[Rfam]
Shown here is a 127-nucleotide RNA sequence from Cytobacillus horneckiae, a member of the family "PyrR binding site". This family represents the PyrR binding site and terminator structure. The family has 41 seed sequences and 1,498 matches in Rfam 15.1. The match comes from Rfam's covariance-model search (61 bits). Gene Ontology terms of the family: pyrimidine nucleobase transport and pyrimidine nucleobase biosynthetic process. The literature on the family includes a 2001 paper in Nucleic Acids Res by Bonner et al., "Molecular recognition of pyr mRNA by the Bacillus subtilis attenuation regulatory protein PyrR".
RNA sequence: AAGUCCUUUAACUGCAGUCCUGUGAGGCUGAGAAGGAAACGGUAUGAAUAUUGGUGAGGAAAAUACCUUUAUUCAAAACUUGUACGAUCGUUUACCCUCUCGUCUGCUGGCGAGAGGGUUUUUUAGU
Numbered sequence: 001a002a003g004u005c006c007u008u009u010a011a012c013u014g015c016a017g018u019c020c021u022g023u024g025a026g027g028c029u030g031a032g033a034a035g036g037a038a039a040c041g042g043u044a045u046g047a048a049u050a051u052u053g054g055u056g057a058g059g060a061a062a063a064u065a066c067c068u069u070u071a072u073u074c075a076a077a078a079c080u081u082g083u084a085c086g087a088u089c090g091u092u093u094a095c096c097c098u099c100u101c102g103u104c105u106g107c108u109g110g111c112g113a114g115a116g117g118g119u120u121u122u123u124u125a126g127u
Base pairs, nucleotide, nucleotide: 004037005036006035007034008033009032015030016029017028018027019026045075046074047073048072049071050070053067054066055065056064094119095118096117097116098115099114100113101112102111103110104109
Dot-bracket structure: ...((((((.....(((((......))))).)))))).......((((((..((((.......))))..))))))..................(((((((((((....)))))))))))........